[Rfam]
RNA sequence: AAGUUGCUGCGGUUAAAACGCUCGUAGUUGAAUUGUGGUCUUAGACAACAGUCCCCCUACAUAGGUGUGGCACGGUUGCUCGAGAUCUUCAUUCGUGGUUGCUGUUGUUGCUCUUCAUUGAGUGUCAAUGGUGCCUCGAGAUUUUACUUUGAAAAAAUUAGAGUGCUCAAAGCAGGUUGUGAUGCCUGAAUAAUGGUGCAUGGAAUAAUAGAAUACGAUCUCGGUUCUAUUUUGUUGGUUUUCGAACCGGAGAUAAUGAUUGAAAGGAACAGACGGGGGCAUUCGUAUUGCUGCGUUAGAGGUGAAAUUCUUGGAUCGCAGCAAGAUGAACAAUUGCGAAAGCAUUUGCCAAGAAUGUUUUCAUUAAUCAAGAACGAAAGUUAGAGGUUCGAAGGCGAUCAGAUACCGCCCUAGUUCUAACGGUAAACUAUGCCAACCAGCGAUUCGCCGAAGUUCAUUUAAGACUCGGCGAGCAGCUUCCGGGAAACCAAAGUGUUUCGGUUCCGGGGGAAGUAUGGUUGCAAAGCUGAAACUUAAAGGAAU
Numbered sequence: 001a002a003g004u005u006g007c008u009g010c011g012g013u014u015a016a017a018a019c020g021c022u023c024g025u026a027g028u029u030g031a032a033u034u035g036u037g038g039u040c041u042u043a044g045a046c047a048a049c050a051g052u053c054c055c056c057c058u059a060c061a062u063a064g065g066u067g068u069g070g071c072a073c074g075g076u077u078g079c080u081c082g083a084g085a086u087c088u089u090c091a092u093u094c095g096u097g098g099u100u101g102c103u104g105u106u107g108u109u110g111c112u113c114u115u116c117a118u119u120g121a122g123u124g125u126c127a128a129u130g131g132u133g134c135c136u137c138g139a140g141a142u143u144u145u146a147c148u149u150u151g152a153a154a155a156a157a158u159u160a161g162a163g164u165g166c167u168c169a170a171a172g173c174a175g176g177u178u179g180u181g182a183u184g185c186c187u188g189a190a191u192a193a194u195g196g197u198g199c200a201u202g203g204a205a206u207a208a209u210a211g212a213a214u215a216c217g218a219u220c221u222c223g224g225u226u227c228u229a230u231u232u233u234g235u236u237g238g239u240u241u242u243c244g245a246a247c248c249g250g251a252g253a254u255a256a257u258g259a260u261u262g263a264a265a266g267g268a269a270c271a272g273a274c275g276g277g278g279g280c281a282u283u284c285g286u287a288u289u290g291c292u293g294c295g296u297u298a299g300a301g302g303u304g305a306a307a308u309u310c311u312u313g314g315a316u317c318g319c320a321g322c323a324a325g326a327u328g329a330a331c332a333a334u335u336g337c338g339a340a341a342g343c344a345u346u347u348g349c350c351a352a353g354a355a356u357g358u359u360u361u362c363a364u365u366a367a368u369c370a371a372g373a374a375c376g377a378a379a380g381u382u383a384g385a386g387g388u389u390c391g392a393a394g395g396c397g398a399u400c401a402g403a404u405a406c407c408g409c410c411c412u413a414g415u416u417c418u419a420a421c422g423g424u425a426a427a428c429u430a431u432g433c434c435a436a437c438c439a440g441c442g443a444u445u446c447g448c449c450g451a452a453g454u455u456c457a458u459u460u461a462a463g464a465c466u467c468g469g470c471g472a473g474c475a476g477c478u479u480c481c482g483g484g485a486a487a488c489c490a491a492a493g494u495g496u497u498u499c500g501g502u503u504c505c506g507g508g509g510g511a512a513g514u515a516u517g518g519u520u521g522c523a524a525a526g527c528u529g530a531a532a533c534u535u536a537a538a539g540g541a542a543u
Stems, first nucleotide, its partner, number of pairs: 010506003018503001020375001022373002027368003266362004270357002274353001278350004284328002288324008299310003336343002380421006390414001394410004432502003436494002439478003444473008453465003482489002508535003517528004
Rfam assigns this 543-nucleotide part of an RNA from Trichinella nativa to the family "Eukaryotic small subunit ribosomal RNA". Pairs were carried over by alignment from the consensus structure, which is taken from published work. The family is grouped with related families in Rfam's "SSU clan". It scores 1740 bits against the family's covariance model. Taxonomically the source falls in Trichinella (Eukaryota, Opisthokonta, Eumetazoa, Protostomia).